Shown here is an 86-nucleotide sequence from Povalibacter uvarum, a member of the family "c-di-GMP-I-GGC riboswitch aptamer".
RNA sequence: CUUCACAAGGGCAAACCCGCUGCAAGGCGGGGACGCAAAGCCUCCGGUCCACGAGCACACGGUGCAGGAUAGCGGGGUUGCCGGUA
Numbered sequence: 001c002u003u004c005a006c007a008a009g010g011g012c013a014a015a016c017c018c019g020c021u022g023c024a025a026g027g028c029g030g031g032g033a034c035g036c037a038a039a040g041c042c043u044c045c046g047g048u049c050c051a052c053g054a055g056c057a058c059a060c061g062g063u064g065c066a067g068g069a070u071a072g073c074g075g076g077g078u079u080g081c082c083g084g085u086a
Stems, first nucleotide, its partner, number of pairs: 003083001011036002016031006034072001039079004044075003047070003